[Rfam]
RNA sequence: GACGAUAAAUGACGUUCAUAAUAAGCGUAUCGGACCCGGGGGCGGUACCCGGCGGCUCCACCAGAAGGCCUGAAGAUAACCUAUUGAGAUUAAAUAUAUUUCUCGAUAUUGGGAUUUACGAAGGCGAAUUGCCCGAAAAACAGGUUUUCGGGCCUUGUGGCGGGGCCGAAAUAGCAUCGACGAUCGUGUAAAGGCUCUGUUUUCGUCCGGAUGGCCUCCGUUAUUGGGCCAUUAUUAUAGUUGCAAAUGACAACUACAAGGAAGAACUCGCUCUUGCUGCGUAA
Numbered sequence: 001g002a003c004g005a006u007a008a009a010u011g012a013c014g015u016u017c018a019u020a021a022u023a024a025g026c027g028u029a030u031c032g033g034a035c036c037c038g039g040g041g042g043c044g045g046u047a048c049c050c051g052g053c054g055g056c057u058c059c060a061c062c063a064g065a066a067g068g069c070c071u072g073a074a075g076a077u078a079a080c081c082u083a084u085u086g087a088g089a090u091u092a093a094a095u096a097u098a099u100u101u102c103u104c105g106a107u108a109u110u111g112g113g114a115u116u117u118a119c120g121a122a123g124g125c126g127a128a129u130u131g132c133c134c135g136a137a138a139a140a141c142a143g144g145u146u147u148u149c150g151g152g153c154c155u156u157g158u159g160g161c162g163g164g165g166c167c168g169a170a171a172u173a174g175c176a177u178c179g180a181c182g183a184u185c186g187u188g189u190a191a192a193g194g195c196u197c198u199g200u201u202u203u204c205g206u207c208c209g210g211a212u213g214g215c216c217u218c219c220g221u222u223a224u225u226g227g228g229c230c231a232u233u234a235u236u237a238u239a240g241u242u243g244c245a246a247a248u249g250a251c252a253a254c255u256a257c258a259a260g261g262a263a264g265a266a267c268u269c270g271c272u273c274u275u276g277c278u279g280c281g282u283a284a
Stems, first nucleotide, its partner, number of pairs: 001207005014197001017194001026186002030183003036052005053168007208220004
Record summary:
The family of this 284-nucleotide RNA sequence from a Parvularculaceae bacterium is "permuted transfer-messenger RNA". Rfam's curators put it in the seed alignment. Its family is annotated with RNA catabolic process in the Gene Ontology. The organism belongs to Parvularculaceae, within Bacteria.